Lysine riboswitch aptamer: a 173-nucleotide sequence from Sutterella wadsworthensis.
RNA sequence: AGGCAAGAUAGAGGCGCAGGGACUGCAUCAGUAGACGGCCGAGGAGGUAUCCGAGGACGCCGCUCGAAAGGGCAGCCUGCCGAAAUGACGCCGCGGACACGCGGCGGCCAUUGGUGACGCGGAGAACAUCCGCCUCACUCCCGCCGAUCCGCGGCGGAGGAGCUGUCGCUGAC
Numbered sequence: 001a002g003g004c005a006a007g008a009u010a011g012a013g014g015c016g017c018a019g020g021g022a023c024u025g026c027a028u029c030a031g032u033a034g035a036c037g038g039c040c041g042a043g044g045a046g047g048u049a050u051c052c053g054a055g056g057a058c059g060c061c062g063c064u065c066g067a068a069a070g071g072g073c074a075g076c077c078u079g080c081c082g083a084a085a086u087g088a089c090g091c092c093g094c095g096g097a098c099a100c101g102c103g104g105c106g107g108c109c110a111u112u113g114g115u116g117a118c119g120c121g122g123a124g125a126a127c128a129u130c131c132g133c134c135u136c137a138c139u140c141c142c143g144c145c146g147a148u149c150c151g152c153g154g155c156g157g158a159g160g161a162g163c164u165g166u167c168g169c170u171g172a173c
Stems, first nucleotide, its partner, number of pairs: 007167005016080005023075004034065002036062004084112004089106007113139005119133005141157006